[Rfam]
RNA sequence: CACAGGUUGGCUGCAACGAAGUGCCGUGCGCACGGGCCGGAUGGACGG
Numbered sequence: 001c002a003c004a005g006g007u008u009g010g011c012u013g014c015a016a017c018g019a020a021g022u023g024c025c026g027u028g029c030g031c032a033c034g035g036g037c038c039g040g041a042u043g044g045a046c047g048g
Stems, first nucleotide, its partner, number of pairs: 008039005021033004
RNA: ssnA RNA